The family of this 46-nucleotide sequence from Schistosoma margrebowiei is "Histone 3' UTR stem-loop". It scores 35 bits against the family's covariance model.

RNA sequence: CUAAGGGCCCUUUUCAGGGCCACCCACAAAUUGAUUUAAAUUCAUU
Numbered sequence: 001c002u003a004a005g006g007g008c009c010c011u012u013u014u015c016a017g018g019g020c021c022a023c024c025c026a027c028a029a030a031u032u033g034a035u036u037u038a039a040a041u042u043c044a045u046u
Stems, first nucleotide, its partner, number of pairs: 006021006

The mRNAs of metazoan histone genes lack a poly-A tail. 3' end processing occurs at a site between a highly conserved stem-loop (modelled by this family) and a purine rich region around 20 nts downstream (the histone downstream element, or HDE). It is annotated as a cis-regulatory element.